[Rfam]
RNA sequence: UUGACAUUUAUUUUUAUUCAGUUUCUUCUCAAGGUGAAGAUAACUCUCUGUUAAUGUCCUAAAGAAAUACAUUAUAGUAGCUUUCUAUUCACCUGUUAUAAGUAAAACGGGUGGUAUGUUCCACUACUGACAUAC
Number, nucleotide and partner (000 for none) at each position: 001u000002u000003g058004a057005c056006a055007u054008u053009u000010a051011u050012u000013u000014u000015u000016a000017u000018u000019c000020a045021g044022u043023u042024u040025c039026u038027u037028c036029u000030c000031a000032a000033g000034g000035u000036g028037a027038a026039g025040a024041u000042a023043a022044c021045u020046c000047u000048c000049u000050g011051u010052u000053a008054a007055u006056g005057u004058c003059c000060u000061a000062a000063a000064g000065a000066a000067a000068u000069a000070c000071a000072u000073u000074a000075u129076a128077g127078u126079a125080g124081c000082u000083u000084u000085c000086u000087a000088u000089u000090c000091a000092c000093c000094u109095g108096u107097u106098a000099u000100a000101a000102g000103u000104a000105a000106a097107a096108c095109g094110g000111g000112u000113g000114g000115u000116a000117u000118g000119u000120u000121c000122c000123a000124c080125u079126a078127c077128u076129g075130a000131c000132a000133u000134a000135c000
Source information:
The family of this 135-nucleotide RNA from Microcebus murinus is "Small Cajal body specific RNA 24". Rfam classes the family as a small Cajal body RNA. The literature on the family includes a 2002 paper in EMBO J by Darzacq et al., "Cajal body-specific small nuclear RNAs: a novel class of 2'-O-methylation and pseudouridylation guide RNAs". Its Rfam clan is "SCARNA3 clan". Lineage of the source: Eukaryota > Amniota > Theria > Eutheria > Microcebus. The family's consensus secondary structure was predicted with RNAfold. About the family: scaRNAs are a specific class of small nuclear RNAs which localise to the Cajal bodies and guide the modification of RNA polymerase II transcribed spliceosomal RNAs U1, U2, U4, U5 and U12. ACA12 belongs to the H/ACA box class of guide RNAs as it has the predicted hairpin-hinge-hairpin-tail structure,the conserved H/ACA-box motifs and is found associated with GAR1.